[Rfam]
RNA sequence: GAUCACGAAGUCCGACGUAUUUCAAAGCCUCCCGGCUCGUCGGCUGGCAACCGCGCACAUCGCGCACGGUGCCCCCGGGAGAAGAUCCGCCGGCACGAGCAAUCGCCGCGCCGGAAGUGCGAUGU
Numbered sequence: 001g002a003u004c005a006c007g008a009a010g011u012c013c014g015a016c017g018u019a020u021u022u023c024a025a026a027g028c029c030u031c032c033c034g035g036c037u038c039g040u041c042g043g044c045u046g047g048c049a050a051c052c053g054c055g056c057a058c059a060u061c062g063c064g065c066a067c068g069g070u071g072c073c074c075c076c077g078g079g080a081g082a083a084g085a086u087c088c089g090c091c092g093g094c095a096c097g098a099g100c101a102a103u104c105g106c107c108g109c110g111c112c113g114g115a116a117g118u119g120c121g122a123u124g125u
Base pairs, nucleotide, nucleotide: 001087002086003085004084009045012043013042014041015040016039026037027036046073047072048071051069052068053067055065056064090114091113092112093111094110096108097107099106100105
Shown here is a 125-nucleotide RNA from Corynebacterium riegelii, a member of the family "SAM (S-adenosyl methionine) riboswitch aptamer". Clan: SAM clan. Its family is annotated with regulation of gene expression and S-adenosylmethionine metabolic process in the Gene Ontology. Pairs were carried over by alignment from the consensus structure, which is taken from published work. From the family's description: SAM-IV is a mRNA element that regulates gene expression via direct sensing of S-adenosylmethionine (SAM or AdoMet). SAM-IV riboswitches share conserved nucleotide positions with the previously described SAM-I riboswitches sequence analysis and molecular recognition experiments suggest that SAM-I and SAM-IV riboswitches share similar ligand binding sites, but have different scaffolds. The source organism's lineage runs through Bacteria, Bacillati, Actinomycetota, Corynebacteriaceae and Corynebacterium.